This 147-nucleotide RNA from Agathobacter rectalis belongs to the Rfam family "Clostridiales-1 RNA". Rfam classes the family as a small RNA.
RNA sequence: CGUAGACAAUGAGGAAAAAAGAAACCCGUGGUCACACUCGUGUGAGCCGCGGGUUUUCUUUUUGACGAAUGUCCGGAUAUGAGCAAGUAGCACCUACUGUGCGGACCACGAAUAUACGGAGGCUGGUGUAAGCCAGCCGUGUCUACG
Number, nucleotide and partner (000 for none) at each position: 001c147002g146003u145004a144005g143006a142007c141008a000009a000010u069011g000012a000013g066014g000015a000016a062017a061018a060019a059020a000021g057022a056023a055024a054025c053026c052027c051028g050029u049030g048031g047032u045033c044034a043035c042036a041037c000038u000039c000040g000041u036042g035043u034044g033045a032046g000047c031048c030049g029050c028051g027052g026053g025054u024055u023056u022057u021058c000059u019060u018061u017062u016063u000064g000065a000066c013067g000068a000069a010070u000071g000072u000073c119074c118075g117076g000077a115078u114079a113080u112081g000082a000083g109084c000085a000086a000087g000088u000089a000090g102091c101092a100093c099094c000095u000096a000097c000098u000099g093100u092101g091102c090103g000104g000105a000106c000107c000108a000109c083110g000111a000112a080113u079114a078115u077116a000117c075118g074119g073120a000121g138122g137123c136124u135125g134126g133127u132128g000129u000130a000131a000132g127133c126134c125135a124136g123137c122138c121139g000140u000141g007142u006143c005144u004145a003146c002147g001